The family of this 79-nucleotide RNA from Desulforapulum autotrophicum is "Glycine riboswitch aptamer".

RNA sequence: CUCUGGAGAGUCUCAUUAUGGGCGCCGAAGGAGCAAACCGGUCUGUUGCCGGUGAAACUCUCAGGUACAAGGGACAGAG
Numbered sequence: 001c002u003c004u005g006g007a008g009a010g011u012c013u014c015a016u017u018a019u020g021g022g023c024g025c026c027g028a029a030g031g032a033g034c035a036a037a038c039c040g041g042u043c044u045g046u047u048g049c050c051g052g053u054g055a056a057a058c059u060c061u062c063a064g065g066u067a068c069a070a071g072g073g074a075c076a077g078a079g
Stems, first nucleotide, its partner, number of pairs: 001079005012022004024066003027062002031060003037053006
It scores 51 bits against the family's covariance model.